[Rfam]
RNA sequence: GUCACGAACUGGCAAAUUAAUUGAAAGAUUAAGACGCAAAACCACCGGCCUAAAAAUUAUGUUAAUAAUUCAAGGUAGCGGGGUUACCGAA
Numbered sequence: 001g002u003c004a005c006g007a008a009c010u011g012g013c014a015a016a017u018u019a020a021u022u023g024a025a026a027g028a029u030u031a032a033g034a035c036g037c038a039a040a041a042c043c044a045c046c047g048g049c050c051u052a053a054a055a056a057u058u059a060u061g062u063u064a065a066u067a068a069u070u071c072a073a074g075g076u077a078g079c080g081g082g083g084u085u086a087c088c089g090a091a
Base pairs, nucleotide, nucleotide: 012037013036017032018031019030020029021028022027040085041084042083043082045081046080047079048076049075050074055070056069057068058067059066060065

Rfam assigns this 91-nucleotide sequence from Photobacterium angustum to the family "c-di-GMP-I riboswitch aptamer". The source organism's lineage runs through Bacteria, Pseudomonadati, Gammaproteobacteria, Vibrionaceae and Photobacterium angustum.